[Rfam]
RNA sequence: UGCCAUAAGGGUUAGUAUUACCCUUAUGGCUAUAUGUAGCAUGUAGCG
Numbered sequence: 001u002g003c004c005a006u007a008a009g010g011g012u013u014a015g016u017a018u019u020a021c022c023c024u025u026a027u028g029g030c031u032a033u034a035u036g037u038a039g040c041a042u043g044u045a046g047c048g
Base pairs, nucleotide, nucleotide: 002030003029004028005027006026007025008024009023010022011021